RNA sequence: GGUGAUAAACAGCCAUCGUAAUAAACCUUUCAGACCCGGGGGCGGCACCCAGCGCCCCUAUCCGAGCCCAGGCUCAGCCUGGGUUUCGCCGUGGGCGAAACAGGAUCGACGAAGGUGUAAAGGGUGGGCUUUCGCCUGGGAUGGUUCCGUCGUCACAGGGCCGAACGAUAGCUGCCGACGACAACUGUGCCGUGGAUGUUUGCGCGGCCGCGUCA
Numbered sequence: 001g002g003u004g005a006u007a008a009a010c011a012g013c014c015a016u017c018g019u020a021a022u023a024a025a026c027c028u029u030u031c032a033g034a035c036c037c038g039g040g041g042g043c044g045g046c047a048c049c050c051a052g053c054g055c056c057c058c059u060a061u062c063c064g065a066g067c068c069c070a071g072g073c074u075c076a077g078c079c080u081g082g083g084u085u086u087c088g089c090c091g092u093g094g095g096c097g098a099a100a101c102a103g104g105a106u107c108g109a110c111g112a113a114g115g116u117g118u119a120a121a122g123g124g125u126g127g128g129c130u131u132u133c134g135c136c137u138g139g140g141a142u143g144g145u146u147c148c149g150u151c152g153u154c155a156c157a158g159g160g161c162c163g164a165a166c167g168a169u170a171g172c173u174g175c176c177g178a179c180g181a182c183a184a185c186u187g188u189g190c191c192g193u194g195g196a197u198g199u200u201u202g203c204g205c206g207g208c209c210g211c212g213u214c215a
Stems, first nucleotide, its partner, number of pairs: 001136005014126004026115003030112002036052001038050003053097005137152003
RNA: permuted transfer-messenger RNA